Rfam assigns this 52-nucleotide RNA to the family "L31-Actinobacteria ribosomal protein leader". Rfam classes the family as a cis-regulatory leader.
RNA sequence: GCGGUACCGGUUCACGUCGCAGCGGCAUCAGCCGCCCGGCGACCCGGCGACC
Numbered sequence: 001g002c003g004g005u006a007c008c009g010g011u012u013c014a015c016g017u018c019g020c021a022g023c024g025g026c027a028u029c030a031g032c033c034g035c036c037c038g039g040c041g042a043c044c045c046g047g048c049g050a051c052c
Stems, first nucleotide, its partner, number of pairs: 003052003007047004015041005
Dot-bracket structure: ..(((.((((....(((((.................)))))..))))..)))